[Rfam]
RNA sequence: UCACUCUGGUUUCUUCGUCAUAAUGCACAAGACUUUUGCCUUUACUAAAGAAUUCCUUGGAGGGGAACGCUGAUGAGUUGAAACUAUUGUUGGGGGGCUUUGCUGUUUGGCCGAGCC
Numbered sequence: 001u002c003a004c005u006c007u008g009g010u011u012u013c014u015u016c017g018u019c020a021u022a023a024u025g026c027a028c029a030a031g032a033c034u035u036u037u038g039c040c041u042u043u044a045c046u047a048a049a050g051a052a053u054u055c056c057u058u059g060g061a062g063g064g065g066a067a068c069g070c071u072g073a074u075g076a077g078u079u080g081a082a083a084c085u086a087u088u089g090u091u092g093g094g095g096g097g098c099u100u101u102g103c104u105g106u107u108u109g110g111c112c113g114a115g116c117c
Stems, first nucleotide, its partner, number of pairs: 003078004009068006016062001018060003029054002033050004095117001097116004102111001
RNA: U5 spliceosomal RNA
Organism: Etheostoma spectabile